[Rfam]
Source information: A member of the RNA family "tRNA" from endosymbiont of Galathealinum brachiosum, 73 nucleotides long. It scores 58 bits against the family's covariance model. Rfam links the family to the GO term triplet codon-amino acid adaptor activity.
RNA sequence: GUCCCCAUCGUCUAGAGGCCUAGGACACCUGGUUUUCAUCCAGGCAACAGGGGUUCGACUCCCCUUGGGGACG
Numbered sequence: 001g002u003c004c005c006c007a008u009c010g011u012c013u014a015g016a017g018g019c020c021u022a023g024g025a026c027a028c029c030u031g032g033u034u035u036u037c038a039u040c041c042a043g044g045c046a047a048c049a050g051g052g053g054u055u056c057g058a059c060u061c062c063c064c065u066u067g068g069g070g071a072c073g
Stems, first nucleotide, its partner, number of pairs: 001072007010026004028044005049065005